The family of this 46-nucleotide RNA sequence from Rhipicephalus sanguineus is "Histone 3' UTR stem-loop".
RNA sequence: UCAAAGGCCCUUUUCAGGGCCACCCAUUUGCUGCAUUGGUGGAAAU
Numbered sequence: 001u002c003a004a005a006g007g008c009c010c011u012u013u014u015c016a017g018g019g020c021c022a023c024c025c026a027u028u029u030g031c032u033g034c035a036u037u038g039g040u041g042g043a044a045a046u
Base pairs, nucleotide, nucleotide: 006021007020008019009018010017011016
Rfam 15.1 lists 44,596 matches to the family in 976 species.
The mRNAs of metazoan histone genes lack a poly-A tail. 3' end processing occurs at a site between a highly conserved stem-loop (modelled by this family) and a purine rich region around 20 nts downstream (the histone downstream element, or HDE). The stem-loop is bound by a 31 kDa stem-loop binding protein (SLBP - also termed the histone hairpin binding protein, or HBP).
Rfam links the family to the GO term mRNA 3'-end processing by stem-loop binding and cleavage.